[Rfam]
RNA: nadA riboswitch
RNA sequence: GGUUGCAACAUCCCCGUGGGUUGGGUGCUUCGUGUUCGGACUUCGAGCAUGGGUACAGCGAAUCCACUGCAACC
Numbered sequence: 001g002g003u004u005g006c007a008a009c010a011u012c013c014c015c016g017u018g019g020g021u022u023g024g025g026u027g028c029u030u031c032g033u034g035u036u037c038g039g040a041c042u043u044c045g046a047g048c049a050u051g052g053g054u055a056c057a058g059c060g061a062a063u064c065c066a067c068u069g070c071a072a073c074c
Stems, first nucleotide, its partner, number of pairs: 001074007013060001014058001016067007023059001025056006